[Rfam]
RNA sequence: CUGAGCUGGUGAUGAGAAAGUUAUCCCUGUCUGAAAGCCCCCUGUGGAAACGUGAUUCUGAGGCUCAG
Numbered sequence: 001c002u003g004a005g006c007u008g009g010u011g012a013u014g015a016g017a018a019a020g021u022u023a024u025c026c027c028u029g030u031c032u033g034a035a036a037g038c039c040c041c042c043u044g045u046g047g048a049a050a051c052g053u054g055a056u057u058c059u060g061a062g063g064c065u066c067a068g
Stems, first nucleotide, its partner, number of pairs: 001068007
Shown here is a 68-nucleotide RNA sequence from Calypte anna, a member of the family "Small nucleolar RNA R38". Its family is annotated with RNA processing and nucleolus in the Gene Ontology. The base pairs follow the family's consensus structure, which was predicted with PFOLD. It is annotated as a C/D-box small nucleolar RNA. Rfam describes the family as follows. snoR38 is a C/D box small nucleolar RNA conserved across yeast, human, Arabidopsis and rice. It is encoded in the intron of elongation factor-1 gamma in both pombe and cerevisiae. snoR38 guides the methylation of 2'-O-ribose sites in 28S rRNA. NCBI's taxonomy places the organism under Eukaryota, Chordata, Gnathostomata, Amniota, Calypte.